[Rfam]
Glycine riboswitch aptamer: a 117-nucleotide RNA sequence from Anaerosporomusa subterranea.
RNA sequence: GGAUGGAACUCUGGAGAGCCCCUAGAAAGUAACUGUACUUUGCUAGGGCGCCGAAGGGGCAAGUCAACGGCGUAAGCUGCUGAUGAAACUCUCAGGCAAAAGGACAGAGCAAUCGGU
Numbered sequence: 001g002g003a004u005g006g007a008a009c010u011c012u013g014g015a016g017a018g019c020c021c022c023u024a025g026a027a028a029g030u031a032a033c034u035g036u037a038c039u040u041u042g043c044u045a046g047g048g049c050g051c052c053g054a055a056g057g058g059g060c061a062a063g064u065c066a067a068c069g070g071c072g073u074a075a076g077c078u079g080c081u082g083a084u085g086a087a088a089c090u091c092u093c094a095g096g097c098a099a100a101a102g103g104a105c106a107g108a109g110c111a112a113u114c115g116g117u
Stems, first nucleotide, its partner, number of pairs: 009109005020048006050097003053093002057091003063084004